[Rfam]
Annotation:
This 36-nucleotide RNA belongs to the Rfam family "DUF805b RNA". The sequence is in the family's curated seed alignment. By type it is a cis-regulatory element.
RNA sequence: ACGGAGCAACCCGAAAAUCCGAUCAAAGAGUAGGGA
Numbered sequence: 001a002c003g004g005a006g007c008a009a010c011c012c013g014a015a016a017a018u019c020c021g022a023u024c025a026a027a028g029a030g031u032a033g034g035g036a
Base pairs, nucleotide, nucleotide: 002021003020004019005018010035011034012033